[Rfam]
RNA sequence: AUAAUGAUACUUCCGUCCAGCCACAGACAUCGCAAUGGGGACGGCCCGCGGAGACCCCGGGGGAGGUGAGAUUCCUAUGA
Number, nucleotide and partner (000 for none) at each position: 001a000002u000003a000004a000005u000006g000007a000008u000009a000010c000011u000012u077013c044014c043015g042016u041017c040018c039019a000020g000021c000022c000023a000024c000025a000026g000027a000028c000029a000030u000031c000032g000033c000034a000035a000036u000037g000038g000039g018040g017041a016042c015043g014044g013045c063046c062047c061048g000049c059050g058051g057052a000053g000054a000055c000056c000057c051058c050059g049060g000061g047062g046063g045064a076065g075066g074067u000068g000069a000070g000071a000072u000073u000074c066075c065076u064077a012078u000079g000080a000
This 80-nucleotide RNA belongs to the Rfam family "pemK RNA". It is one of the family's seed sequences.